[Rfam]
RNA sequence: CCACCUUUUCUUGGCAUGUUAAGUAUUGAAUAGUAACUUACCAUGUAUGUAAUGGUGGUAUAUAAAAUGUGGACUGUCUUCGGUGCUGGAGUUCUGAGUACUCCAUAUCCCUCCUCUAUGUUCACAACAGUA
Numbered sequence: 001c002c003a004c005c006u007u008u009u010c011u012u013g014g015c016a017u018g019u020u021a022a023g024u025a026u027u028g029a030a031u032a033g034u035a036a037c038u039u040a041c042c043a044u045g046u047a048u049g050u051a052a053u054g055g056u057g058g059u060a061u062a063u064a065a066a067a068u069g070u071g072g073a074c075u076g077u078c079u080u081c082g083g084u085g086c087u088g089g090a091g092u093u094c095u096g097a098g099u100a101c102u103c104c105a106u107a108u109c110c111c112u113c114c115u116c117u118a119u120g121u122u123c124a125c126a127a128c129a130g131u132a
Base pairs, nucleotide, nucleotide: 001058002057003056004055005054015045016044017043018042020040022038023037024036026035070124071123072122073121074120087105088104089103090102091101092100
Record summary: The record is a 132-nucleotide RNA sequence from Mytilus coruscus, which matches "Small nucleolar RNA SNORA57" in Rfam. The source organism's lineage runs through Eukaryota, Opisthokonta, Protostomia, Pteriomorphia and Mytilus. On this family, see Vitali et al., Nucleic Acids Res 2003: "Identification of 13 novel human modification guide RNAs". The match comes from Rfam's covariance-model search (48 bits). Rfam links the family to the GO terms RNA processing and nucleolus.